Rfam assigns this 239-nucleotide RNA sequence from Danionella cerebrum to the family "Small nucleolar RNA SNORA53". Rfam's curators write: The snoRNA ACA53 belongs to the H/ACA family of pseudouridylation guide snoRNAs. Pairs were carried over by alignment from the consensus structure, which was predicted with RNAalifold. Rfam links the family to the GO terms nucleolus and RNA processing.

RNA sequence: UACACGCUCCUUAGAUCCACCUCUGGGGAGCCGUUGAGCCACGCUCCCCUGUUUUCUCUCACGUGGAGAUUCAGGUUUGAGCUGUGGCUCGUGGGCUCCCAGCAGCUUCACCGUUGUACUGUCAGAGGUGCUUGAGUCAUUGGCGUGUGAGAUCAGUCUACCUGCUUUACCCAGAAUCCUCUCUACCCUGAACCUUAACAGGGAAACAGCAGGGUAGAACUUCUUGGGGAGCGGACACA
Numbered sequence: 001u002a003c004a005c006g007c008u009c010c011u012u013a014g015a016u017c018c019a020c021c022u023c024u025g026g027g028g029a030g031c032c033g034u035u036g037a038g039c040c041a042c043g044c045u046c047c048c049c050u051g052u053u054u055u056c057u058c059u060c061a062c063g064u065g066g067a068g069a070u071u072c073a074g075g076u077u078u079g080a081g082c083u084g085u086g087g088c089u090c091g092u093g094g095g096c097u098c099c100c101a102g103c104a105g106c107u108u109c110a111c112c113g114u115u116g117u118a119c120u121g122u123c124a125g126a127g128g129u130g131c132u133u134g135a136g137u138c139a140u141u142g143g144c145g146u147g148u149g150a151g152a153u154c155a156g157u158c159u160a161c162c163u164g165c166u167u168u169a170c171c172c173a174g175a176a177u178c179c180u181c182u183c184u185a186c187c188c189u190g191a192a193c194c195u196u197a198a199c200a201g202g203g204a205a206a207c208a209g210c211a212g213g214g215u216a217g218a219a220c221u222u223c224u225u226g227g228g229g230a231g232c233g234g235a236c237a238c239a
Stems, first nucleotide, its partner, number of pairs: 002148007010136005018130008026100006037089004043082004048075004054069001056068004102117005162234005171227001173225002176222001183217008194209002